[Rfam]
Enterovirus cis-acting replication element: a 61-nucleotide sequence from Enterovirus coxsackiepol. Its family is annotated with RNA replication in the Gene Ontology. Rfam classes the family as a cis-regulatory element. The source organism's lineage runs through Viruses, Picornaviridae, Enterovirus, Enterovirus coxsackiepol and Enterovirus C.
RNA sequence: CAUAAAUAAUUACGUACAGUUCAAGAGCAAGCACCGUAUUGAGCCAGUAUGUUUGUUAGUA
Number, nucleotide and partner (000 for none) at each position: 001c000002a000003u000004a000005a000006a000007u000008a000009a000010u000011u000012a000013c051014g050015u049016a048017c047018a000019g044020u043021u042022c041023a040024a039025g000026a000027g000028c036029a000030a000031g000032c000033a000034c000035c000036g028037u000038a000039u024040u023041g022042a021043g020044c019045c000046a000047g017048u016049a015050u014051g013052u000053u000054u000055g000056u000057u000058a000059g000060u000061a000